[Rfam]
The family of this 120-nucleotide sequence from Turnera subulata is "Small nucleolar RNA snoR100". The family's RNA type in Rfam is H/ACA-box small nucleolar RNA. The match comes from Rfam's covariance-model search (83 bits).

RNA sequence: UGAUGAAGGUAGCAUGGUAGGGUGCACAGAGAUCAAUUGUUUCGAUGAUAGAUAGGGGUCUGCAUGUCUGCUCCCUCUGAUUCCUCUCUUGAUUUGGGGGCCUGGUUUUGACCCACAAUU
Numbered sequence: 001u002g003a004u005g006a007a008g009g010u011a012g013c014a015u016g017g018u019a020g021g022g023u024g025c026a027c028a029g030a031g032a033u034c035a036a037u038u039g040u041u042u043c044g045a046u047g048a049u050a051g052a053u054a055g056g057g058g059u060c061u062g063c064a065u066g067u068c069u070g071c072u073c074c075c076u077c078u079g080a081u082u083c084c085u086c087u088c089u090u091g092a093u094u095u096g097g098g099g100g101c102c103u104g105g106u107u108u109u110g111a112c113c114c115a116c117a118a119u120u
Stems, first nucleotide, its partner, number of pairs: 012025004056103005066093003